[Rfam]
RNA: Mammalian CPEB3 ribozyme
Organism: Crocodylus porosus
RNA sequence: CUUAUUUUACUGGGGACCAUAGCAGAGGCGUUCACAUUACGACCCCUGUCAGGUAAUGCCUGGUAAUACGUGCAAAUUCCGCU
Numbered sequence: 001c002u003u004a005u006u007u008u009a010c011u012g013g014g015g016a017c018c019a020u021a022g023c024a025g026a027g028g029c030g031u032u033c034a035c036a037u038u039a040c041g042a043c044c045c046c047u048g049u050c051a052g053g054u055a056a057u058g059c060c061u062g063g064u065a066a067u068a069c070g071u072g073c074a075a076a077u078u079c080c081g082c083u
Base pairs, nucleotide, nucleotide: 013046014045015044018041021083022082023081025079026078027077028040030038050072051071053069054068055067